[Rfam]
A member of the RNA family "mir-221 microRNA precursor family" from Callorhinchus milii, 81 nucleotides long. The match comes from Rfam's covariance-model search (81 bits). Gene Ontology terms of the family: RISC complex and miRNA-mediated post-transcriptional gene silencing. NCBI's taxonomy places the organism under Eukaryota, Bilateria, Vertebrata, Holocephali, Callorhinchus. Pairs were carried over by alignment from the consensus structure, which was predicted with RNAalifold. The family has 72 seed sequences and 1,797 matches in Rfam 15.1. On this family, see Soares et al., BMC Genomics 2009: "Parallel DNA pyrosequencing unveils new zebrafish microRNAs".
RNA sequence: UCCAUCAAUUGCUCAGUAGUCAGUGUAGAUCCUGUCUCCAUUCAGCAGCUACAUCUGGCUACUGGGUCUCUGAUGCCAUCA
Number, nucleotide and partner (000 for none) at each position: 001u000002c000003c000004a000005u000006c000007a000008a000009u000010u000011g000012c000013u065014c064015a063016g062017u061018a060019g000020u058021c057022a056023g054024u053025g052026u051027a050028g049029a000030u000031c000032c048033u047034g046035u045036c000037u000038c000039c000040a000041u000042u000043c000044a000045g035046c034047a033048g032049c028050u027051a026052c025053a024054u023055c000056u022057g021058g020059c000060u018061a017062c016063u015064g014065g013066g000067u000068c000069u000070c000071u000072g000073a000074u000075g000076c000077c000078a000079u000080c000081a000